[Rfam]
RNA sequence: GGUAUUCCUUAUCUGUCUAAUACGUUGAUUAUCUGGAACCUGUCCCAUUGUAUUUUCACGAGAAAACACAAUAAGACAGGUUCUGUGUUUAGUUGCCGCGCGCUAAAGUUUG
Numbered sequence: 001g002g003u004a005u006u007c008c009u010u011a012u013c014u015g016u017c018u019a020a021u022a023c024g025u026u027g028a029u030u031a032u033c034u035g036g037a038a039c040c041u042g043u044c045c046c047a048u049u050g051u052a053u054u055u056u057c058a059c060g061a062g063a064a065a066a067c068a069c070a071a072u073a074a075g076a077c078a079g080g081u082u083c084u085g086u087g088u089u090u091a092g093u094u095g096c097c098g099c100g101c102g103c104u105a106a107a108g109u110u111u112g
Stems, first nucleotide, its partner, number of pairs: 001097004022088004035084010047072005053066005